[Rfam]
RNA sequence: CCUACUGUCUCACCAGUAGUUCCCUACUCAGCUGUGCGUUAACGGUAACGUUGAGGUGCAAAGCGCUGAGGACAAUGUAGCCACGUCACUUCGUAGGUGUAACCUGUGAGGGUAGCAUCGAAACUGCUAGCCGUGAGCGGUGAUGGCG
Dot-bracket structure: .((((((......))))))........((((((((((.((((((....)))))).)))))....))))).............(((......))).((((....((....))....))))...((((((.......)))))).......
Numbered sequence: 001c002c003u004a005c006u007g008u009c010u011c012a013c014c015a016g017u018a019g020u021u022c023c024c025u026a027c028u029c030a031g032c033u034g035u036g037c038g039u040u041a042a043c044g045g046u047a048a049c050g051u052u053g054a055g056g057u058g059c060a061a062a063g064c065g066c067u068g069a070g071g072a073c074a075a076u077g078u079a080g081c082c083a084c085g086u087c088a089c090u091u092c093g094u095a096g097g098u099g100u101a102a103c104c105u106g107u108g109a110g111g112g113u114a115g116c117a118u119c120g121a122a123a124c125u126g127c128u129a130g131c132c133g134u135g136a137g138c139g140g141u142g143a144u145g146g147c148g
Stems, first nucleotide, its partner, number of pairs: 002019006028069005033060005039054006083094003096119004104111002123141006
Annotation: A member of the RNA family "Group II catalytic intron D1-D4-7" from Paralteromonas sediminis, 148 nucleotides long. The family has 244 seed sequences and 1,296 matches in Rfam 15.1. Its family is annotated with Group II intron splicing in the Gene Ontology. NCBI's taxonomy places the organism under Bacteria, Pseudomonadati, Pseudomonadota, Alteromonadaceae, Paralteromonas.